[Rfam]
RNA sequence: AACCCCCCGAAAUCUGUUCGCAACUUGGCGGAAGGGAGCAGAUAUCAGGGGGUCACAAAGCAGGCGCUGGCCUGUGAGAGAUUAUAACUCAUGCAAUUCAGAAAACAAUACCCAUCCGCCAUCUGU
Numbered sequence: 001a002a003c004c005c006c007c008c009g010a011a012a013u014c015u016g017u018u019c020g021c022a023a024c025u026u027g028g029c030g031g032a033a034g035g036g037a038g039c040a041g042a043u044a045u046c047a048g049g050g051g052g053u054c055a056c057a058a059a060g061c062a063g064g065c066g067c068u069g070g071c072c073u074g075u076g077a078g079a080g081a082u083u084a085u086a087a088c089u090c091a092u093g094c095a096a097u098u099c100a101g102a103a104a105a106c107a108a109u110a111c112c113c114a115u116c117c118g119c120c121a122u123c124u125g126u
Base pairs, nucleotide, nucleotide: 002053003052004051005050006049007048009046010045013042014041015040016039017038018037019036021035026121027120028119029118030117031116032115
Rfam assigns this 126-nucleotide RNA from Yersinia ruckeri to the family "Pseudoknot of the regulatory region of the repBA gene". Lineage of the source: Bacteria > Pseudomonadati > Pseudomonadota > Enterobacterales > Yersinia.